[Rfam]
RNA sequence: GGGCAGGAUGGGUGAAGUUAGCUAACCGGCAAGCCGGUUAUCUAUCUUCACUGUCCCUUAUUCGCGCCGGGGGCACUCAACGGGAAUCCUGCCCUGCGGGGCU
Numbered sequence: 001g002g003g004c005a006g007g008a009u010g011g012g013u014g015a016a017g018u019u020a021g022c023u024a025a026c027c028g029g030c031a032a033g034c035c036g037g038u039u040a041u042c043u044a045u046c047u048u049c050a051c052u053g054u055c056c057c058u059u060a061u062u063c064g065c066g067c068c069g070g071g072g073g074c075a076c077u078c079a080a081c082g083g084g085a086a087u088c089c090u091g092c093c094c095u096g097c098g099g100g101g102c103u
Base pairs, nucleotide, nucleotide: 001094002093003092004091005090006089007088008087009086012051013050014049015048016047017046019044020043021042024039025038026037027036028035029034054085055084056083057082064076066074067073068072
About this RNA
Shown here is a 103-nucleotide RNA sequence from Acinetobacter baumannii, a member of the family "traJ-II RNA". The family's RNA type in Rfam is cis-regulatory element. Pairs were carried over by alignment from the consensus structure, which is taken from published work. The family has 47 seed sequences and 174 matches in Rfam 15.1.